[Rfam]
RNA sequence: AGCAUCACUUAAGCGCCAGAGCUUGCGCUUAUUCCUACAGCUGCUGCAGCGUCCUAUACGGAACGGAUGCUGCGGAUCAAUUAUCGGCUGUAUGAACGGCAAGCUGACGAGGUGGAGGUGUUCGAAAUUUUCGGCGGGGACCUCCCGGUAUCGCAUUCAACCGAAAGCCGAUUCCCAAAUAGACCGGGCGACUGGUCUGACAAACGAUCGGCAGGAUGCUCU
Numbered sequence: 001a002g003c004a005u006c007a008c009u010u011a012a013g014c015g016c017c018a019g020a021g022c023u024u025g026c027g028c029u030u031a032u033u034c035c036u037a038c039a040g041c042u043g044c045u046g047c048a049g050c051g052u053c054c055u056a057u058a059c060g061g062a063a064c065g066g067a068u069g070c071u072g073c074g075g076a077u078c079a080a081u082u083a084u085c086g087g088c089u090g091u092a093u094g095a096a097c098g099g100c101a102a103g104c105u106g107a108c109g110a111g112g113u114g115g116a117g118g119u120g121u122u123c124g125a126a127a128u129u130u131u132c133g134g135c136g137g138g139g140a141c142c143u144c145c146c147g148g149u150a151u152c153g154c155a156u157u158c159a160a161c162c163g164a165a166a167g168c169c170g171a172u173u174c175c176c177a178a179a180u181a182g183a184c185c186g187g188g189c190g191a192c193u194g195g196u197c198u199g200a201c202a203a204a205c206g207a208u209c210g211g212c213a214g215g216a217u218g219c220u221c222u
Base pairs, nucleotide, nucleotide: 020105021104022103023102024101025100026099029096114145115144116143117142118141122134123133124132125131146163147162148161149160167212168211169210170209171208172207173206181198182197183196184195185194186193187192
Rfam assigns this 222-nucleotide RNA from Paenibacillus lycopersici to the family "glmS glucosamine-6-phosphate activated ribozyme aptamer". The organism belongs to Paenibacillus, within Bacteria. On this family, see Jansen et al., Nat Struct Mol Biol 2006: "Backbone and nucleobase contacts to glucosamine-6-phosphate in the glmS ribozyme".